[Rfam]
RNA sequence: UGGCAGUAAACCCGUAGAUCCGAACUUGUGUUGUGCACUCGAUAACACAGUUCGUUUCUCGGGUACACUGCUGU
Numbered sequence: 001u002g003g004c005a006g007u008a009a010a011c012c013c014g015u016a017g018a019u020c021c022g023a024a025c026u027u028g029u030g031u032u033g034u035g036c037a038c039u040c041g042a043u044a045a046c047a048c049a050g051u052u053c054g055u056u057u058c059u060c061g062g063g064u065a066c067a068c069u070g071c072u073g074u
Stems, first nucleotide, its partner, number of pairs: 002072006010064003016059003021054005027049004

mir-10 microRNA precursor family: a 74-nucleotide RNA from Toxocara canis. Pairs were carried over by alignment from the consensus structure, which was predicted with PFOLD. The organism belongs to Toxocara, within Eukaryota.